[Rfam]
RNA sequence: CACUCGUAGUCUGCCACAGGGAUCCAGGUCUGGCAGAUGGCUGGCUUGUGGUGCUUCGGCACUGCAGGCUUGGGUAAAACCUCUGUCAGUAUGUCCUGGUCCCAACCUUGGAUGCUGAGAUGCUCCUGCAUGAAGCCCUCUUAAGUGAGGGUCAAAGCUAUCUUGCAGUCAAUGCUUGUUGGGCAAUCCAAGGCAUGACCCUGUGUCAGCCUAUCUCUACAUGGGCCCAUAACCGGAGUUCAGCAUCAGAGCAACCCUGGUAAACUCAGUGUGCUUCAAGCAACCGUUCUGGCUUGUAUGCCAUCCAGUGAAUUGCAGAGCAACGAUCAGCCUUGGCUAAGAGUUGUGCUGGCCUUGGUGACAAAUCUGAGCAAUGUGGGGCUUCCCCCUAGCUGUGGCCUGGCCUCGGUCAUGGUCCACUGCCCAGGUGGGGAGUCACCAAACGGACAUGAUGGAAGAGUUCAGAGUGGAAGAUACUGCAAGCCAGAGUGAAAAUUCUUAGACCGCUGCAAGAUCAACUGCAGCGAAGGCGUUCUGCAAGAGCUCGUUCGUCGAUCAAGAAUGAGA
Numbered sequence: 001c002a003c004u005c006g007u008a009g010u011c012u013g014c015c016a017c018a019g020g021g022a023u024c025c026a027g028g029u030c031u032g033g034c035a036g037a038u039g040g041c042u043g044g045c046u047u048g049u050g051g052u053g054c055u056u057c058g059g060c061a062c063u064g065c066a067g068g069c070u071u072g073g074g075u076a077a078a079a080c081c082u083c084u085g086u087c088a089g090u091a092u093g094u095c096c097u098g099g100u101c102c103c104a105a106c107c108u109u110g111g112a113u114g115c116u117g118a119g120a121u122g123c124u125c126c127u128g129c130a131u132g133a134a135g136c137c138c139u140c141u142u143a144a145g146u147g148a149g150g151g152u153c154a155a156a157g158c159u160a161u162c163u164u165g166c167a168g169u170c171a172a173u174g175c176u177u178g179u180u181g182g183g184c185a186a187u188c189c190a191a192g193g194c195a196u197g198a199c200c201c202u203g204u205g206u207c208a209g210c211c212u213a214u215c216u217c218u219a220c221a222u223g224g225g226c227c228c229a230u231a232a233c234c235g236g237a238g239u240u241c242a243g244c245a246u247c248a249g250a251g252c253a254a255c256c257c258u259g260g261u262a263a264a265c266u267c268a269g270u271g272u273g274c275u276u277c278a279a280g281c282a283a284c285c286g287u288u289c290u291g292g293c294u295u296g297u298a299u300g301c302c303a304u305c306c307a308g309u310g311a312a313u314u315g316c317a318g319a320g321c322a323a324c325g326a327u328c329a330g331c332c333u334u335g336g337c338u339a340a341g342a343g344u345u346g347u348g349c350u351g352g353c354c355u356u357g358g359u360g361a362c363a364a365a366u367c368u369g370a371g372c373a374a375u376g377u378g379g380g381g382c383u384u385c386c387c388c389c390u391a392g393c394u395g396u397g398g399c400c401u402g403g404c405c406u407c408g409g410u411c412a413u414g415g416u417c418c419a420c421u422g423c424c425c426a427g428g429u430g431g432g433g434a435g436u437c438a439c440c441a442a443a444c445g446g447a448c449a450u451g452a453u454g455g456a457a458g459a460g461u462u463c464a465g466a467g468u469g470g471a472a473g474a475u476a477c478u479g480c481a482a483g484c485c486a487g488a489g490u491g492a493a494a495a496u497u498c499u500u501a502g503a504c505c506g507c508u509g510c511a512a513g514a515u516c517a518a519c520u521g522c523a524g525c526g527a528a529g530g531c532g533u534u535c536u537g538c539a540a541g542a543g544c545u546c547g548u549u550c551g552u553c554g555a556u557c558a559a560g561a562a563u564g565a566g567a
Stems, first nucleotide, its partner, number of pairs: 002563001004561002009556003455550003459545005467538006473516002478511004483505001487498003524531002

The family of this 567-nucleotide part of an RNA from Trachelomonas sp. T201 is "Eukaryotic small subunit ribosomal RNA". The sequence is in the family's curated seed alignment. NCBI's taxonomy places the organism under Eukaryota, Discoba, Euglenida, Euglenales, Trachelomonas.